[Rfam]
RNA sequence: AAGCCAUCCAAUUAAUCUGCUUAUCUGAAUGUGUUUCUGAAGAAAUUUAGAAAAAGUUGGCAGUAGUGAUGGCAUCUUACGAGCCUUAAGAAUAACUGAGGUCUUUAAGGUCCCUGAAAAUGGCUACAAUA
Numbered sequence: 001a002a003g004c005c006a007u008c009c010a011a012u013u014a015a016u017c018u019g020c021u022u023a024u025c026u027g028a029a030u031g032u033g034u035u036u037c038u039g040a041a042g043a044a045a046u047u048u049a050g051a052a053a054a055a056g057u058u059g060g061c062a063g064u065a066g067u068g069a070u071g072g073c074a075u076c077u078u079a080c081g082a083g084c085c086u087u088a089a090g091a092a093u094a095a096c097u098g099a100g101g102u103c104u105u106u107a108a109g110g111u112c113c114c115u116g117a118a119a120a121u122g123g124c125u126a127c128a129a130u131a
Base pairs, nucleotide, nucleotide: 003061004060005059006058016043017042018041020039071124073122074121083111084110085109086108087107088106089105092102093101
A member of the RNA family "Small nucleolar RNA SNORA33" from Jaculus jaculus, 131 nucleotides long. It scores 115 bits against the family's covariance model. The family's consensus secondary structure was predicted with PFOLD. Lineage of the source: Eukaryota > Bilateria > Dipodoidea > Dipodinae > Jaculus. About the family: ACA33 is a member of the H/ACA class of snoRNA that guide the sites of modification of uridines to pseudouridines.